RNA sequence: GAGUUCCCGCCCGUGGCGAGCUUAAGGGGUUAAACCCCGAAGGCUUAGGGAAACCGAAAAGCCCGUAGCGGGGGUGACCCCGUGAGGGGCUGGGUCUUAAUGGGCCCGUAGUCACGGGCGGGAGACCCGAAACCGGGCGAUCUAGCCCUGGGCAGGGUGAAGCGGGGCGAAAGCCCCGUGGAGGCCCGAAAGGGUUCUGAUGUGCAAUUCGUUCCCAUGACCUGGGGCUAGGGGCAAAAGACCAAUCAAGCCCGGUGAUAGCUGGUU
Numbered sequence: 001g002a003g004u005u006c007c008c009g010c011c012c013g014u015g016g017c018g019a020g021c022u023u024a025a026g027g028g029g030u031u032a033a034a035c036c037c038c039g040a041a042g043g044c045u046u047a048g049g050g051a052a053a054c055c056g057a058a059a060a061g062c063c064c065g066u067a068g069c070g071g072g073g074g075u076g077a078c079c080c081c082g083u084g085a086g087g088g089g090c091u092g093g094g095u096c097u098u099a100a101u102g103g104g105c106c107c108g109u110a111g112u113c114a115c116g117g118g119c120g121g122g123a124g125a126c127c128c129g130a131a132a133c134c135g136g137g138c139g140a141u142c143u144a145g146c147c148c149u150g151g152g153c154a155g156g157g158u159g160a161a162g163c164g165g166g167g168c169g170a171a172a173g174c175c176c177c178g179u180g181g182a183g184g185c186c187c188g189a190a191a192g193g194g195u196u197c198u199g200a201u202g203u204g205c206a207a208u209u210c211g212u213u214c215c216c217a218u219g220a221c222c223u224g225g226g227g228c229u230a231g232g233g234g235c236a237a238a239a240g241a242c243c244a245a246u247c248a249a250g251c252c253c254g255g256u257g258a259u260a261g262c263u264g265g266u267u
Base pairs, nucleotide, nucleotide: 005123006122007121008120009119010118011117012116013115014114015113016112017111020044021043022042023041026038027037028036029035048055049054061090062089063088064087068083069082070081071080072079073078093106094105095104096103126265127264129262133255134254135253136252137251138250142231143230144229145228146227147226148225149224150223151222152221153219155187156186157185158184162179163178164177165176166175167174168173192216193215194214197211199210200209233243234242